[Rfam]
RNA sequence: UAGGGUGUGAGGAAAUCAAGGAGUGGCUCAUGGGGUCGAAACACGGCAAGACUCCCGUGAGCCUUUGU
Numbered sequence: 001u002a003g004g005g006u007g008u009g010a011g012g013a014a015a016u017c018a019a020g021g022a023g024u025g026g027c028u029c030a031u032g033g034g035g036u037c038g039a040a041a042c043a044c045g046g047c048a049a050g051a052c053u054c055c056c057g058u059g060a061g062c063c064u065u066u067g068u
Base pairs, nucleotide, nucleotide: 015064025063026062027061028060029059030058031057032056033055034054035052036051037050
Overview
A member of the RNA family "Cyano-1 RNA" from Geminocystis sp. M7585_C2015_104, 68 nucleotides long. The match comes from Rfam's covariance-model search (50 bits). The family's consensus secondary structure is taken from published work. Taxonomically the source falls in Geminocystis (Bacteria, Bacillati, Cyanobacteriota, Chroococcales).